[Rfam]
RNA: Glycine riboswitch aptamer
Organism: Phytoactinopolyspora halotolerans
RNA sequence: CGACUCCGGCUGGGAGAGUCUCCGUGCCCGCAGUGGCGUGGGGCGCCGAAGGGGCAACAUCCCCGUCAACCUCUCAGGCAACAGGGACCGGCCGGGACAG
Numbered sequence: 001c002g003a004c005u006c007c008g009g010c011u012g013g014g015a016g017a018g019u020c021u022c023c024g025u026g027c028c029c030g031c032a033g034u035g036g037c038g039u040g041g042g043g044c045g046c047c048g049a050a051g052g053g054g055c056a057a058c059a060u061c062c063c064c065g066u067c068a069a070c071c072u073c074u075c076a077g078g079c080a081a082c083a084g085g086g087a088c089c090g091g092c093c094g095g096g097a098c099a100g
Stems, first nucleotide, its partner, number of pairs: 006095008020043009045079003048075002052073003059066002